[Rfam]
RNA sequence: ACGAUUUCAUUUUACCUUGGUGUCUAUUUUCGGGUGUCUAUUUCAAAAAAUUGGUUUAGAUUUUUUAACUGUUGUUGCAAAGAACCUGAAGAAAAUGGUGGCCACGAGAGGACUCGAACCUCCGACCACUACCA
Numbered sequence: 001a002c003g004a005u006u007u008c009a010u011u012u013u014a015c016c017u018u019g020g021u022g023u024c025u026a027u028u029u030u031c032g033g034g035u036g037u038c039u040a041u042u043u044c045a046a047a048a049a050a051u052u053g054g055u056u057u058a059g060a061u062u063u064u065u066u067a068a069c070u071g072u073u074g075u076u077g078c079a080a081a082g083a084a085c086c087u088g089a090a091g092a093a094a095a096u097g098g099u100g101g102c103c104a105c106g107a108g109a110g111g112a113c114u115c116g117a118a119c120c121u122c123c124g125a126c127c128a129c130u131a132c133c134a
Stems, first nucleotide, its partner, number of pairs: 018040003024034002054069003096131006105124002108122004
Rfam assigns this 134-nucleotide sequence from Wolinella succinogenes to the family "Bacterial antisense RNA HPnc0260".
The sequence is in the family's curated seed alignment.
On this family, see Sharma et al., Nature 2010: "The primary transcriptome of the major human pathogen Helicobacter pylori".